Shown here is a 59-nucleotide sequence from Bifidobacterium reuteri, a member of the family "msiK RNA".
It scores 56 bits against the family's covariance model.
The base pairs follow the family's consensus structure, which is taken from published work.
NCBI's taxonomy places the organism under Bacteria, Bacillati, Actinomycetota, Bifidobacteriaceae, Bifidobacterium reuteri.
[Rfam]
RNA sequence: GAAUAAAUCCCUUUACCACGGAUCGUGAGGCACGUACCUGCCUCUGAAAGGAUUGCAAU
Number, nucleotide and partner (000 for none) at each position: 001g000002a000003a000004u000005a000006a000007a000008u000009c051010c050011c000012u048013u047014u046015a045016c000017c000018a000019c000020g000021g000022a000023u000024c000025g000026u000027g044028a043029g042030g041031c040032a039033c000034g000035u000036a000037c000038c000039u032040g031041c030042c029043u028044c027045u015046g014047a013048a012049a000050g010051g009052a000053u000054u000055g000056c000057a000058a000059u000